Annotation:
A member of the RNA family "ssnA RNA" from Pseudoflavonifractor capillosus, 48 nucleotides long. The family's consensus secondary structure is taken from published work. Lineage of the source: Bacteria > Bacillati > Bacillota > Clostridia > Pseudoflavonifractor capillosus. By type it is a cis-regulatory element.
RNA sequence: UGAAGCAAGGCUGCAACGGAGUGCUGCGCGCACGGGCUGAAUGGACAU
Numbered sequence: 001u002g003a004a005g006c007a008a009g010g011c012u013g014c015a016a017c018g019g020a021g022u023g024c025u026g027c028g029c030g031c032a033c034g035g036g037c038u039g040a041a042u043g044g045a046c047a048u
Stems, first nucleotide, its partner, number of pairs: 009038004021033004